[Rfam]
RNA sequence: AAGGGGAGUGCAGGAUCCUGGGCUGUGUCCCCCGGCACUCUGGGCUCCAGGGCCUGUGCCACUGGAAUCAUGAUCCCGGAGCUGCACAGCCCCCU
Numbered sequence: 001a002a003g004g005g006g007a008g009u010g011c012a013g014g015a016u017c018c019u020g021g022g023c024u025g026u027g028u029c030c031c032c033c034g035g036c037a038c039u040c041u042g043g044g045c046u047c048c049a050g051g052g053c054c055u056g057u058g059c060c061a062c063u064g065g066a067a068u069c070a071u072g073a074u075c076c077c078g079g080a081g082c083u084g085c086a087c088a089g090c091c092c093c094c095u
Base pairs, nucleotide, nucleotide: 001095003093004092005091006090010087013083014082017079018078020076021075022074024072025071026070027069028066029065032064034060035059036058037057038056042054044053045052046051
Dot-bracket structure: (.((((...(..((..((.(((.((((((..(.(((((...(.(((....)))).)))))...)))..)))).))).))..))...)..)))).)
The record is a 95-nucleotide RNA sequence from Canis lupus, which matches "mir-8799 microRNA precursor family" in Rfam. The source organism's lineage runs through Eukaryota, Vertebrata, Euteleostomi, Sarcopterygii and Canis lupus. Gene Ontology terms of the family: miRNA-mediated post-transcriptional gene silencing and RISC complex. The base pairs follow the family's consensus structure, which was predicted with RNAalifold.